[Rfam]
RNA sequence: UUGACGCUGAUUUUUUUUCAACCUAAAGUAAAGGAACAAGGGUGAGGGAGGAUUUCUCCCCCCUCUGAUUGGCUGUUAAUAAGCUGCGAAACUUACGAGUAACAACACAAUCAGUAUGAUGACGAGCUUCAUCAUAACCCUUUCCUUCUG
Numbered sequence: 001u002u003g004a005c006g007c008u009g010a011u012u013u014u015u016u017u018u019c020a021a022c023c024u025a026a027a028g029u030a031a032a033g034g035a036a037c038a039a040g041g042g043u044g045a046g047g048g049a050g051g052a053u054u055u056c057u058c059c060c061c062c063c064u065c066u067g068a069u070u071g072g073c074u075g076u077u078a079a080u081a082a083g084c085u086g087c088g089a090a091a092c093u094u095a096c097g098a099g100u101a102a103c104a105a106c107a108c109a110a111u112c113a114g115u116a117u118g119a120u121g122a123c124g125a126g127c128u129u130c131a132u133c134a135u136a137a138c139c140c141u142u143u144c145c146u147u148c149u150g
Stems, first nucleotide, its partner, number of pairs: 032146004038142006046063003065114004115136007
RNA: Short Intergenic Abundant RNA